[Rfam]
RNA sequence: AGGUGAGGUAGAGGUCGCGGUUACGAUUAGUAAACCGGAAGAGGCAUAAGAGCUGCCGUUUGGAUUCCGUGUUGAAAGGCGUACCCGCCGAAAUCUGUUUGAGUACUGCUCUAUGAAACGUACUCCAGGUUGGGGCUGCUAGAUCCGAAAGGAGCAGAACUGUCAUAGCGUAAGCUAUGUUGAGCUAUCUUAACG
Numbered sequence: 001a002g003g004u005g006a007g008g009u010a011g012a013g014g015u016c017g018c019g020g021u022u023a024c025g026a027u028u029a030g031u032a033a034a035c036c037g038g039a040a041g042a043g044g045c046a047u048a049a050g051a052g053c054u055g056c057c058g059u060u061u062g063g064a065u066u067c068c069g070u071g072u073u074g075a076a077a078g079g080c081g082u083a084c085c086c087g088c089c090g091a092a093a094u095c096u097g098u099u100u101g102a103g104u105a106c107u108g109c110u111c112u113a114u115g116a117a118a119c120g121u122a123c124u125c126c127a128g129g130u131u132g133g134g135g136c137u138g139c140u141a142g143a144u145c146c147g148a149a150a151g152g153a154g155c156a157g158a159a160c161u162g163u164c165a166u167a168g169c170g171u172a173a174g175c176u177a178u179g180u181u182g183a184g185c186u187a188u189c190u191u192a193a194c195g
Base pairs, nucleotide, nucleotide: 006190007189008188009187010186011185017088018087019086020085022083023082024081025080033073034072035071036069037068038067039066040065092131093130094129095128096127097126132161133160136157137156138155139154140153164179165178166177167176168175169174